[Rfam]
RNA sequence: GCAGGGAAGAGGAAGAAAGAGAGAGCAUAAGAUCAUUAGGAAUGGGAACAUGGCGGAAAGCUUAACUCUUCUAUUUUCACCUCUAGUGUUGGAGGAGCAAAUAUUUAGUUGUGUGCUUUCCCGAUGCCUCCCAUUCCUAUAGUUCUUGAGCACUCCUUCCUCUUCCCUUUCGCU
Numbered sequence: 001g002c003a004g005g006g007a008a009g010a011g012g013a014a015g016a017a018a019g020a021g022a023g024a025g026c027a028u029a030a031g032a033u034c035a036u037u038a039g040g041a042a043u044g045g046g047a048a049c050a051u052g053g054c055g056g057a058a059a060g061c062u063u064a065a066c067u068c069u070u071c072u073a074u075u076u077u078c079a080c081c082u083c084u085a086g087u088g089u090u091g092g093a094g095g096a097g098c099a100a101a102u103a104u105u106u107a108g109u110u111g112u113g114u115g116c117u118u119u120c121c122c123g124a125u126g127c128c129u130c131c132c133a134u135u136c137c138u139a140u141a142g143u144u145c146u147u148g149a150g151c152a153c154u155c156c157u158u159c160c161u162c163u164u165c166c167c168u169u170u171c172g173c174u
Stems, first nucleotide, its partner, number of pairs: 009165005015159003021155003026150001028148005034142001037139011049126003053122001055121007

Shown here is a 174-nucleotide RNA sequence from Triticum urartu, a member of the family "MIR2118 microRNA precursor family". A reference for the family is Johnson et al. (2009), "Clusters and superclusters of phased small RNAs in the developing inflorescence of rice", Genome Res. The base pairs follow the family's consensus structure, which was predicted with RNAalifold. A search with the family's covariance model found it, with a score of 144 bits.